About this RNA:
The family of this 85-nucleotide RNA sequence from Corynebacterium ureicelerivorans is "tRNA". The family's RNA type in Rfam is transfer RNA. The family's consensus secondary structure is taken from published work. Taxonomically the source falls in Corynebacterium (Bacteria, Actinomycetota, Actinomycetes, Corynebacteriaceae).
[Rfam]
RNA sequence: GGUAGCGUGUCCGAGCGGCCGAAGGUACUCGCCUCGAAAGCGAGUGUGGGUAAAACCACCGCGGGUUCAAAUCCCGCCGCUACCG
Numbered sequence: 001g002g003u004a005g006c007g008u009g010u011c012c013g014a015g016c017g018g019c020c021g022a023a024g025g026u027a028c029u030c031g032c033c034u035c036g037a038a039a040g041c042g043a044g045u046g047u048g049g050g051u052a053a054a055a056c057c058a059c060c061g062c063g064g065g066u067u068c069a070a071a072u073c074c075c076g077c078c079g080c081u082a083c084c085g
Stems, first nucleotide, its partner, number of pairs: 001084007011025002028044005061077005